[Rfam]
RNA: Streptococcus sRNA SpF59 (ldcC RNA)
RNA sequence: GGACCACCUUCCUGGAAGGUUAAGGCCAUACGGACAGCCGGGUCCACUGCCGA
Number, nucleotide and partner (000 for none) at each position: 001g045002g044003a043004c042005c041006a020007c019008c018009u017010u016011c015012c000013u000014g000015g011016a010017a009018g008019g007020u006021u000022a000023a000024g000025g000026c000027c000028a000029u000030a000031c000032g000033g000034a000035c000036a000037g000038c000039c000040g000041g005042g004043u003044c002045c001046a000047c000048u000049g000050c000051c000052g000053a000